[Rfam]
RNA sequence: UCCGAAAAUGGCAAACCGGUCGCGAGGCCGGGACGCAAAGCCACGGAUCUCUAUGAGAUGGCCGGGCUGCCGAAG
Numbered sequence: 001u002c003c004g005a006a007a008a009u010g011g012c013a014a015a016c017c018g019g020u021c022g023c024g025a026g027g028c029c030g031g032g033a034c035g036c037a038a039a040g041c042c043a044c045g046g047a048u049c050u051c052u053a054u055g056a057g058a059u060g061g062c063c064g065g066g067c068u069g070c071c072g073a074a075g
Stems, first nucleotide, its partner, number of pairs: 001075001003072002011036002016031006034061001039068004044064003047059003
Description:
c-di-GMP-I-GGC riboswitch aptamer: a 75-nucleotide sequence from Novipirellula herctigrandis. Rfam links the family to the GO term cyclic-di-GMP binding. Rfam 15.1 lists 1,298 matches to the family in 717 species. Lineage of the source: Bacteria > Pseudomonadati > Pirellulales > Pirellulaceae > Novipirellula. The family's consensus secondary structure is taken from published work.